[Rfam]
RNA sequence: AUGCAGGAAAUGCGGGUAGCCGCUGCCGCAAUCGUCUCGGCGAUUGGCGGUAGAGGAAAGUCCAGGCUCGCCCAAGCUGAGAUGCUUGGAGUGUUCGUACCUGGCGCAAGCCAGGGCAAGUGAGGCGCAAGCCUCGCUGACGGCGUGGAAAGGGCUCUCUCUGAGGCCCGAGUACGCUGAAAGUGCCACAGAAACGUAGCUUUUCUGGCGACAGAAAAGAUGGAACGCGGUAAACCCUGCGAGCGAGAAACCCAAAUUUGGUAGGGGAACCGUCCUGAAGGAAUCAAACGGAAGGGACGGAUGGUAUCUUCGGAUGCCAUAGAUAGAUGGCUACCGCUCUUGGUGCGAGGGAUACGUCCCGCUUGCAGCACGGGAGAGACAGAACCUGGCUUAUAGCAUUUCCUGCUGGAU
Numbered sequence: 001a002u003g004c005a006g007g008a009a010a011u012g013c014g015g016g017u018a019g020c021c022g023c024u025g026c027c028g029c030a031a032u033c034g035u036c037u038c039g040g041c042g043a044u045u046g047g048c049g050g051u052a053g054a055g056g057a058a059a060g061u062c063c064a065g066g067c068u069c070g071c072c073c074a075a076g077c078u079g080a081g082a083u084g085c086u087u088g089g090a091g092u093g094u095u096c097g098u099a100c101c102u103g104g105c106g107c108a109a110g111c112c113a114g115g116g117c118a119a120g121u122g123a124g125g126c127g128c129a130a131g132c133c134u135c136g137c138u139g140a141c142g143g144c145g146u147g148g149a150a151a152g153g154g155c156u157c158u159c160u161c162u163g164a165g166g167c168c169c170g171a172g173u174a175c176g177c178u179g180a181a182a183g184u185g186c187c188a189c190a191g192a193a194a195c196g197u198a199g200c201u202u203u204u205c206u207g208g209c210g211a212c213a214g215a216a217a218a219g220a221u222g223g224a225a226c227g228c229g230g231u232a233a234a235c236c237c238u239g240c241g242a243g244c245g246a247g248a249a250a251c252c253c254a255a256a257u258u259u260g261g262u263a264g265g266g267g268a269a270c271c272g273u274c275c276u277g278a279a280g281g282a283a284u285c286a287a288a289c290g291g292a293a294g295g296g297a298c299g300g301a302u303g304g305u306a307u308c309u310u311c312g313g314a315u316g317c318c319a320u321a322g323a324u325a326g327a328u329g330g331c332u333a334c335c336g337c338u339c340u341u342g343g344u345g346c347g348a349g350g351g352a353u354a355c356g357u358c359c360c361g362c363u364u365g366c367a368g369c370a371c372g373g374g375a376g377a378g379a380c381a382g383a384a385c386c387u388g389g390c391u392u393a394u395a396g397c398a399u400u401u402c403c404u405g406c407u408g409g410a411u
Stems, first nucleotide, its partner, number of pairs: 011398003014394001015335007023053006058392003062389005067247005072089006095242005100115006116141001117139002120137007142237002145177003152169004157165003183235002185231003200219008251266003270300007301320008337376006344370003
Dot-bracket structure: ..........(((((((((((.((((((...................))))))....[[[.[[[[[(((((((((((......)))))).....(((((((((((....))))))(((.(((((((....))))))))).)((.(((....((((.(((...))))))).....))).....(((((............((((((((....)))))))).........)))..))))))))))))))...(((..........)))...(((((((.................)))))))((((((((....))))))))........))))))).((((((.(((.....................)))))))))........]]]]]]]].).))).............